[Rfam]
The record is a 114-nucleotide RNA sequence from Panicum hallii, which matches "MIR2275 microRNA precursor family" in Rfam.
The organism belongs to Panicum hallii, within Eukaryota.
RNA sequence: GCACUGAAAGUGAGAGUUGGAGGAAAUCAAACCUAUGGAUCAUCCUGUAAUAGGUCGAUGAUAAAACAUGAUCACCGAUCGGUUUGUUUUCCUCCAAUAUCUCACCUUCAGUCG
Numbered sequence: 001g002c003a004c005u006g007a008a009a010g011u012g013a014g015a016g017u018u019g020g021a022g023g024a025a026a027u028c029a030a031a032c033c034u035a036u037g038g039a040u041c042a043u044c045c046u047g048u049a050a051u052a053g054g055u056c057g058a059u060g061a062u063a064a065a066a067c068a069u070g071a072u073c074a075c076c077g078a079u080c081g082g083u084u085u086g087u088u089u090u091c092c093u094c095c096a097a098u099a100u101c102u103c104a105c106c107u108u109c110a111g112u113c114g
Base pairs, nucleotide, nucleotide: 004111005110006109007108008107011104012103013102014101016098017097018096019095020094021093023091024090025089026088028086029085030084032082033081